The record is a 64-nucleotide RNA from Podargus strigoides, which matches "mir-29 microRNA precursor family" in Rfam.
The family's consensus secondary structure was predicted with PFOLD.
It scores 64 bits against the family's covariance model.
Taxonomically the source falls in Podargus (Eukaryota, Opisthokonta, Bilateria, Neoaves).
Rfam describes the family as follows. This family represents the microRNA (miRNA) precursors mir-29.

RNA sequence: GGAUGACUGAUUUCUUUUGGUGUUCAGAGUCAAUAAUAUUUUCUAGCACCAUUUGAAAUCGGUU
Numbered sequence: 001g002g003a004u005g006a007c008u009g010a011u012u013u014c015u016u017u018u019g020g021u022g023u024u025c026a027g028a029g030u031c032a033a034u035a036a037u038a039u040u041u042u043c044u045a046g047c048a049c050c051a052u053u054u055g056a057a058a059u060c061g062g063u064u
Stems, first nucleotide, its partner, number of pairs: 005063001007062008018051005026044003
Dot-bracket structure: ....(.((((((((...(((((...(((.............)))..)))))...))))))))).